[Rfam]
RNA sequence: AUGCACGGCGAAGGACCACGACGAGUGCAAGGACUGCUGUCCUUCCCGCGGAGGAAAUUCCCCGUGCAAUAUUGUGCUUGAGAAAGCUCUAGGAAUGUUGCUAUAGCCUGGGCAGUCUACCGGAGUACCGCGACGAAGGGUAUCUGUUCCAGGUGUCUGUUGGCAUCUUGAGCGACGAAGUACCUGUACUCUGCCCGCGGUAGCCGACGUCUCAGAUAGAUGUGGUCGGAGGGGAUGCAACCCUCUAACAGAAUGGGUAUUACUCUCGCCGUGCA
Numbered sequence: 001a002u003g004c005a006c007g008g009c010g011a012a013g014g015a016c017c018a019c020g021a022c023g024a025g026u027g028c029a030a031g032g033a034c035u036g037c038u039g040u041c042c043u044u045c046c047c048g049c050g051g052a053g054g055a056a057a058u059u060c061c062c063c064g065u066g067c068a069a070u071a072u073u074g075u076g077c078u079u080g081a082g083a084a085a086g087c088u089c090u091a092g093g094a095a096u097g098u099u100g101c102u103a104u105a106g107c108c109u110g111g112g113c114a115g116u117c118u119a120c121c122g123g124a125g126u127a128c129c130g131c132g133a134c135g136a137a138g139g140g141u142a143u144c145u146g147u148u149c150c151a152g153g154u155g156u157c158u159g160u161u162g163g164c165a166u167c168u169u170g171a172g173c174g175a176c177g178a179a180g181u182a183c184c185u186g187u188a189c190u191c192u193g194c195c196c197g198c199g200g201u202a203g204c205c206g207a208c209g210u211c212u213c214a215g216a217u218a219g220a221u222g223u224g225g226u227c228g229g230a231g232g233g234g235a236u237g238c239a240a241c242c243c244u245c246u247a248a249c250a251g252a253a254u255g256g257g258u259a260u261u262a263c264u265c266u267c268g269c270c271g272u273g274c275a
Base pairs, nucleotide, nucleotide: 002275003274004273005272006271007270008269009268010267011266014227015226016225017224018223019222022050027049028048029044030043031042032041033040034039056261057260058259061257062256063255076087077086078085079084088112089111090110091109092108093107114201116199118188119187120186125183126182127181128180163173164172166170229245230244231243232242233241